[Rfam]
RNA sequence: GUGACAGAAGAGAGUGAGCACACAUGGUGUUUUCUCGCAUGAUGUUUAUAUGCUUGAAACUAUGUGUGCUCACUGCUCUAUCUGUCAC
Dot-bracket structure: ((((((((.((((((((((((.(((....................................))).))))))))).)))..))))))))
RNA: mir-156 microRNA precursor family